[Rfam]
RNA sequence: AGGAGGUGGAGCGCUUAUGAACGGAGUGAAUAAUUUUAAUGCGCUCCACCGAUCUGCCCCGCUCGCGAAGCAGAGAGGGGCGAUACAUUAU
Numbered sequence: 001a002g003g004a005g006g007u008g009g010a011g012c013g014c015u016u017a018u019g020a021a022c023g024g025a026g027u028g029a030a031u032a033a034u035u036u037u038a039a040u041g042c043g044c045u046c047c048a049c050c051g052a053u054c055u056g057c058c059c060c061g062c063u064c065g066c067g068a069a070g071c072a073g074a075g076a077g078g079g080g081c082g083a084u085a086c087a088u089u090a091u
Base pairs, nucleotide, nucleotide: 008047009046010045011044012043013042016032017031018030021027056081057080058079059078060077063074064073

Annotation: The record is a 91-nucleotide RNA sequence from Coprococcus eutactus, which matches "GA-cis RNA" in Rfam. Rfam's curators put it in the seed alignment.